[Rfam]
RNA sequence: CCCUCUGGGGAGUAGCCUGCUUCAACACAGAAGCGCCUGUGUCAACAUACUCGGCAUCACUGCAUGCCGUGGCACCGGCAGCCGACAUUCGGCCUGGCGAGACCAUUGGCAUGACAGCGCGAAUGUCGGGCGGCGCUGGCUUGCCAUGGCCAUCGCCCGACCGGAC
Number, nucleotide and partner (000 for none) at each position: 001c000002c000003c000004u000005c000006u000007g000008g000009g000010g000011a000012g000013u000014a000015g000016c000017c000018u000019g034020c033021u032022u000023c000024a000025a000026c000027a000028c000029a000030g000031a000032a021033g020034c019035g079036c078037c077038u000039g075040u074041g073042u072043c071044a070045a000046c000047a000048u000049a000050c000051u000052c069053g068054g067055c066056a065057u000058c000059a000060c000061u000062g000063c000064a000065u056066g055067c054068c053069g052070u044071g043072g042073c041074a040075c039076c000077g037078g036079c035080a000081g000082c000083c000084g166085a000086c164087a000088u000089u000090c000091g000092g000093c000094c000095u000096g000097g000098c000099g000100a000101g000102a000103c000104c000105a000106u000107u000108g000109g000110c000111a000112u000113g000114a000115c000116a000117g000118c000119g000120c000121g000122a000123a000124u000125g000126u000127c000128g000129g000130g000131c000132g000133g000134c000135g000136c000137u000138g000139g000140c000141u000142u000143g000144c000145c000146a000147u000148g000149g000150c000151c000152a000153u000154c000155g000156c000157c000158c000159g000160a000161c000162c000163g000164g086165a000166c084
Rfam assigns this 166-nucleotide RNA from Herminiimonas sp. to the family "Manganese Mn2+ riboswitch aptamer (yybP-ykoY)". It scores 48 bits against the family's covariance model.